[Rfam]
RNA sequence: CAUGGCUCUGCCAACGCUACGGCUUGGCGGGCUGGCCUUUCCUCAAUAGGUGGUCAGCCGGUUCUGUCCUGCUUCGGCGAACACGUUACACGGUUCGGCAAAACGUCGAUUACUGAAAAUGGAAAGGCGGGGCCGACUUC
Dot-bracket structure: ....((.(((((((.((....))))))))))).....................................(((....))).............(.(((((....((((.....(.......)....))))..))))))...
Numbered sequence: 001c002a003u004g005g006c007u008c009u010g011c012c013a014a015c016g017c018u019a020c021g022g023c024u025u026g027g028c029g030g031g032c033u034g035g036c037c038u039u040u041c042c043u044c045a046a047u048a049g050g051u052g053g054u055c056a057g058c059c060g061g062u063u064c065u066g067u068c069c070u071g072c073u074u075c076g077g078c079g080a081a082c083a084c085g086u087u088a089c090a091c092g093g094u095u096c097g098g099c100a101a102a103a104c105g106u107c108g109a110u111u112a113c114u115g116a117a118a119a120u121g122g123a124a125a126g127g128c129g130g131g132g133c134c135g136a137c138u139u140c
Stems, first nucleotide, its partner, number of pairs: 005032002008030007016023002070079003093137001095136005104129004113121001

The record is a 140-nucleotide RNA, which matches "Bacteriophage Diversity-Generating Retroelement RNA" in Rfam. For this family Rfam cites "RNA control of reverse transcription in a diversity-generating retroelement" (Handa et al., Nature, 2025). Pairs were carried over by alignment from the consensus structure, which is taken from published work. It is one of the family's seed sequences.